[Rfam]
Shown here is a 70-nucleotide sequence from Alectura lathami, a member of the family "Small nucleolar RNA SNORD19". The base pairs follow the family's consensus structure.
RNA sequence: GAGAAAUGAGGACACGGAGUGUCUUACUGCUGUGUGAAGACUUCAGAUCCAACUCUGAUCUCACACGGCA
Numbered sequence: 001g002a003g004a005a006a007u008g009a010g011g012a013c014a015c016g017g018a019g020u021g022u023c024u025u026a027c028u029g030c031u032g033u034g035u036g037a038a039g040a041c042u043u044c045a046g047a048u049c050c051a052a053c054u055c056u057g058a059u060c061u062c063a064c065a066c067g068g069c070a
Stems, first nucleotide, its partner, number of pairs: 001062004